[Rfam]
RNA sequence: AUCGUUCAUCUUCGAAAGAAGACGGAAGUAGGUGAAAGCUGAAGGAACGCGAC
Numbered sequence: 001a002u003c004g005u006u007c008a009u010c011u012u013c014g015a016a017a018g019a020a021g022a023c024g025g026a027a028g029u030a031g032g033u034g035a036a037a038g039c040u041g042a043a044g045g046a047a048c049g050c051g052a053c
Base pairs, nucleotide, nucleotide: 003049004048005047006046007045009022010021011020012019013018025050031040032039033038

Shown here is a 53-nucleotide RNA sequence, a member of the family "Glutamine riboswitch aptamer (glnA leader)". The base pairs follow the family's consensus structure, which is taken from published work. Its family is annotated with glutamine binding in the Gene Ontology. A reference for the family is Ren et al. (2015), "Structural and Dynamic Basis for Low-Affinity, High-Selectivity Binding of L-Glutamine by the Glutamine Riboswitch", Cell Rep.